[Rfam]
RNA sequence: GUAAGAAAUCUGGUCAGUUCUCCGUAGCACACGCAAAACUGAAAAGAUUUGUUACAG
Numbered sequence: 001g002u003a004a005g006a007a008a009u010c011u012g013g014u015c016a017g018u019u020c021u022c023c024g025u026a027g028c029a030c031a032c033g034c035a036a037a038a039c040u041g042a043a044a045a046g047a048u049u050u051g052u053u054a055c056a057g
Base pairs, nucleotide, nucleotide: 001055002054003053004052006050007049008048009047010046011045015041016040017039018038019037021035023033024032025031
RNA: mir-255 microRNA precursor family